[Rfam]
RNA sequence: AUGAUCAUAAUGAUGAAAUAUUUCGGAUGUAAACACAGACCUGUUCCGAAUUGCGCAAAAACCGUGUGGAUAUUUCCGUUGCCUUCCUUCUGAAUUGAUCA
Numbered sequence: 001a002u003g004a005u006c007a008u009a010a011u012g013a014u015g016a017a018a019u020a021u022u023u024c025g026g027a028u029g030u031a032a033a034c035a036c037a038g039a040c041c042u043g044u045u046c047c048g049a050a051u052u053g054c055g056c057a058a059a060a061a062c063c064g065u066g067u068g069g070a071u072a073u074u075u076c077c078g079u080u081g082c083c084u085u086c087c088u089u090c091u092g093a094a095u096u097g098a099u100c101a
Stems, first nucleotide, its partner, number of pairs: 003100003024078004
Annotation:
The family of this 101-nucleotide RNA from Aspergillus rambellii is "Small nucleolar RNA Z13/snr52". The organism belongs to Aspergillus subgen. Nidulantes, within Eukaryota. The family's consensus secondary structure was predicted with PFOLD. The match comes from Rfam's covariance-model search (98 bits).